Rfam assigns this 81-nucleotide RNA sequence from Lepeophtheirus salmonis to the family "mir-981 microRNA precursor family". Taxonomically the source falls in Lepeophtheirus (Eukaryota, Protostomia, Mandibulata, Neocopepoda). For this family Rfam cites "Bioinformatic prediction, deep sequencing of microRNAs and expression analysis during phenotypic plasticity in the pea aphid, Acyrthosiphon pisum" (Legeai et al., BMC Genomics, 2010). The family's consensus secondary structure was predicted with RNAalifold. The match comes from Rfam's covariance-model search (52 bits).

[Rfam]
RNA sequence: UCUUGUGUGUAUCAGGUUUCACGAUUUGCGGAUUUAGAAUUUAAUCAAUUCGUUGUCGACGAAACCUGCUCGGUAUCAAGG
Number, nucleotide and partner (000 for none) at each position: 001u081002c080003u079004u078005g077006u000007g000008u000009g000010u000011a000012u000013c068014a067015g066016g065017u064018u063019u062020c061021a000022c000023g000024a000025u000026u000027u000028g000029c000030g051031g050032a049033u048034u047035u000036a000037g000038a000039a000040u000041u000042u000043a000044a000045u000046c000047a034048a033049u032050u031051c030052g000053u000054u000055g000056u000057c000058g000059a000060c000061g020062a019063a018064a017065c016066c015067u014068g013069c000070u000071c000072g000073g000074u000075a000076u000077c005078a004079a003080g002081g001